[Rfam]
RNA sequence: GUUCUUUAUUAUUGUAAGUCGCUUUGGAUAAAAGCGUCUGCCAAAUGAAUUGUA
Numbered sequence: 001g002u003u004c005u006u007u008a009u010u011a012u013u014g015u016a017a018g019u020c021g022c023u024u025u026g027g028a029u030a031a032a033a034g035c036g037u038c039u040g041c042c043a044a045a046u047g048a049a050u051u052g053u054a
Stems, first nucleotide, its partner, number of pairs: 013043001014041003020036006
Overview
Rfam assigns this 54-nucleotide RNA sequence from Astyanax mexicanus to the family "UnaL2 LINE 3' element". It is annotated as a cis-regulatory element.